[Rfam]
RNA: pemK RNA
RNA sequence: AUAAUGAUACUUCAAUAGUUUAAGCUGCCUCGUCUGGAACAAGGGGCGGAGGUGAGAUUCCUAUGU
Numbered sequence: 001a002u003a004a005u006g007a008u009a010c011u012u013c014a015a016u017a018g019u020u021u022a023a024g025c026u027g028c029c030u031c032g033u034c035u036g037g038a039a040c041a042a043g044g045g046g047c048g049g050a051g052g053u054g055a056g057a058u059u060c061c062u063a064u065g066u
Stems, first nucleotide, its partner, number of pairs: 012063001013027002016024001029048001031046001033044003050062003